A member of the RNA family "Small nucleolar RNA SNORD11B" from Sitta europaea, 85 nucleotides long. Rfam links the family to the GO terms nucleolus and RNA processing. The family is grouped with related families in Rfam's "SNORD11 clan". The base pairs follow the family's consensus structure, which was predicted with WAR. Rfam classes the family as a C/D-box small nucleolar RNA. The family has 37 seed sequences and 733 matches in Rfam 15.1.
RNA sequence: UGAUGGCAGUGAUGCUUCCUGUCUUGUUGCUCUCCUGAUGUUCAGACAUGAGGGUGCACAGUUAUUAUCUCACUCUGAGCAAUCU
Numbered sequence: 001u002g003a004u005g006g007c008a009g010u011g012a013u014g015c016u017u018c019c020u021g022u023c024u025u026g027u028u029g030c031u032c033u034c035c036u037g038a039u040g041u042u043c044a045g046a047c048a049u050g051a052g053g054g055u056g057c058a059c060a061g062u063u064a065u066u067a068u069c070u071c072a073c074u075c076u077g078a079g080c081a082a083u084c085u
Base pairs, nucleotide, nucleotide: 002084003083004082006080007079